[Rfam]
RNA sequence: UAGUGAGUAAGACCUUUCUGAAACGGAUGAGGCCACCUUGAGGUGGGCGGGACAAAGUAGGAAAGGGUUCACGU
Number, nucleotide and partner (000 for none) at each position: 001u000002a000003g072004u071005g070006a069007g000008u000009a000010a000011g000012a000013c066014c065015u064016u063017u062018c061019u060020g000021a000022a000023a000024c000025g000026g000027a000028u000029g000030a000031g000032g000033c046034c045035a044036c043037c042038u000039u000040g000041a000042g037043g036044u035045g034046g033047g000048c000049g000050g000051g000052a000053c000054a000055a000056a000057g000058u000059a000060g019061g018062a017063a016064a015065g014066g013067g000068u000069u006070c005071a004072c003073g000074u000